[Rfam]
RNA sequence: CGCGCCCACGCCGUGGACGCCCCGCCCGCCAUCGCGUGUCCCCGGCUACGCUGGCCGGGUGCCCCGCGUACCGCUCGGGGCAAAGCCGACAGCCGUCGCAUCUACGGGAGUGAAUCCAUG
Numbered sequence: 001c002g003c004g005c006c007c008a009c010g011c012c013g014u015g016g017a018c019g020c021c022c023c024g025c026c027c028g029c030c031a032u033c034g035c036g037u038g039u040c041c042c043c044g045g046c047u048a049c050g051c052u053g054g055c056c057g058g059g060u061g062c063c064c065c066g067c068g069u070a071c072c073g074c075u076c077g078g079g080g081c082a083a084a085g086c087c088g089a090c091a092g093c094c095g096u097c098g099c100a101u102c103u104a105c106g107g108g109a110g111u112g113a114a115u116c117c118a119u120g
Base pairs, nucleotide, nucleotide: 060082061081062080063079065077066076068074085099086098088097089096090095
This 120-nucleotide RNA from Streptomyces montanisoli belongs to the Rfam family "Streptomyces-metH RNA". Rfam classes the family as a small RNA. The base pairs follow the family's consensus structure, which is taken from published work.